[Rfam]
RNA sequence: UUGAGUUACCAAAAGGGAAUACCCCUUUGUUCGGUCGAUAGCUGGAUACUGAUUUUGUUAAUUAAGCGUAUGUUAAGUACGUCAGUCUAGUUGGGAAGAGAGCAUAAGCUCUCUUUUCUUUUAUGG
Numbered sequence: 001u002u003g004a005g006u007u008a009c010c011a012a013a014a015g016g017g018a019a020u021a022c023c024c025c026u027u028u029g030u031u032c033g034g035u036c037g038a039u040a041g042c043u044g045g046a047u048a049c050u051g052a053u054u055u056u057g058u059u060a061a062u063u064a065a066g067c068g069u070a071u072g073u074u075a076a077g078u079a080c081g082u083c084a085g086u087c088u089a090g091u092u093g094g095g096a097a098g099a100g101a102g103c104a105u106a107a108g109c110u111c112u113c114u115u116u117u118c119u120u121u122u123a124u125g126g
Stems, first nucleotide, its partner, number of pairs: 008035003011030001012028006039093006048086004052062003066082006095116009
The record is a 126-nucleotide RNA, which matches "DUF3800-I RNA" in Rfam. The family's RNA type in Rfam is small RNA. It is one of the family's seed sequences. From the family's description: Actinobacteria, Firmicutes, Fusobacteria, Proteobacteria (1 example), Tenericutes (2 examples).